[Rfam]
RNA sequence: CUUGAUCGACCCCAACCACAGCGGCUCACCACGCCCCUGCCCAUAGGUCGCCAACAACGCCUGCGCCUC
Numbered sequence: 001c002u003u004g005a006u007c008g009a010c011c012c013c014a015a016c017c018a019c020a021g022c023g024g025c026u027c028a029c030c031a032c033g034c035c036c037c038u039g040c041c042c043a044u045a046g047g048u049c050g051c052c053a054a055c056a057a058c059g060c061c062u063g064c065g066c067c068u069c
Stems, first nucleotide, its partner, number of pairs: 014026001016024002027065001029063001032059002038053002041050001043048001
The family of this 69-nucleotide sequence from Mycobacterium pseudokansasii is "ASpks TB sRNA". The family's consensus secondary structure is taken from published work. The source organism's lineage runs through Bacteria, Bacillati, Actinomycetes, Mycobacteriaceae and Mycobacterium. It scores 64 bits against the family's covariance model.